About this RNA
Rfam assigns this 333-nucleotide part of an RNA from Leuconostoc fallax to the family "Bacterial large subunit ribosomal RNA". The family's consensus secondary structure is taken from published work.
RNA sequence: CGAGAGAACCCUCGUUAAGGAACUCGGCAAAAUGACCCCGUAACUUCGGGAGAAGGGGUGCUGACUUCGGUCAGCCGCAGUGAAUAGGCCCAGGCGACUGUUUAUCAAAAACACAGGUUUCUGCAAAAUCGUAAGAUGAAGUAUAGGGGCUGACGCCUGCCCGGUGCUGGAAGGUUAAAAGGAGUGCUUAGCUUCGGCGAAGGUGCGAAUUGAAGCCCCAGUAAACGGCGGCCGUAACUAUAACGGUCCUAAGGUAGCGAAAUUCCUUGUCGGGUAAGUUCCGACCCGCACGAAAGGCGUAACGAUCUGGGCACUGUCUCAACGAGGGACUCG
Numbered sequence: 001c002g003a004g005a006g007a008a009c010c011c012u013c014g015u016u017a018a019g020g021a022a023c024u025c026g027g028c029a030a031a032a033u034g035a036c037c038c039c040g041u042a043a044c045u046u047c048g049g050g051a052g053a054a055g056g057g058g059u060g061c062u063g064a065c066u067u068c069g070g071u072c073a074g075c076c077g078c079a080g081u082g083a084a085u086a087g088g089c090c091c092a093g094g095c096g097a098c099u100g101u102u103u104a105u106c107a108a109a110a111a112c113a114c115a116g117g118u119u120u121c122u123g124c125a126a127a128a129u130c131g132u133a134a135g136a137u138g139a140a141g142u143a144u145a146g147g148g149g150c151u152g153a154c155g156c157c158u159g160c161c162c163g164g165u166g167c168u169g170g171a172a173g174g175u176u177a178a179a180a181g182g183a184g185u186g187c188u189u190a191g192c193u194u195c196g197g198c199g200a201a202g203g204u205g206c207g208a209a210u211u212g213a214a215g216c217c218c219c220a221g222u223a224a225a226c227g228g229c230g231g232c233c234g235u236a237a238c239u240a241u242a243a244c245g246g247u248c249c250u251a252a253g254g255u256a257g258c259g260a261a262a263u264u265c266c267u268u269g270u271c272g273g274g275u276a277a278g279u280u281c282c283g284a285c286c287c288g289c290a291c292g293a294a295a296g297g298c299g300u301a302a303c304g305a306u307c308u309g310g311g312c313a314c315u316g317u318c319u320c321a322a323c324g325a326g327g328g329a330c331u332c333g
Stems, first nucleotide, its partner, number of pairs: 001333004009328008018319003035059005044049001060075006076080001088312007095304002099113003116151008124141001128137003154299004159229003164226002166222005173217003179211002184206005191198002230248006249253001259286001269285006